[Rfam]
RNA sequence: AUGGGGAUGGUGAUAAAAAUAGACAAUCUUGAAUGAUUCAUUUGAAUGUGAUUUCACAACCAGCUACUUCUGACUCAU
Numbered sequence: 001a002u003g004g005g006g007a008u009g010g011u012g013a014u015a016a017a018a019a020u021a022g023a024c025a026a027u028c029u030u031g032a033a034u035g036a037u038u039c040a041u042u043u044g045a046a047u048g049u050g051a052u053u054u055c056a057c058a059a060c061c062a063g064c065u066a067c068u069u070c071u072g073a074c075u076c077a078u
Stems, first nucleotide, its partner, number of pairs: 001078005
Dot-bracket structure: (((((....................................................................)))))
RNA: Small nucleolar RNA R12
Organism: Artemisia annua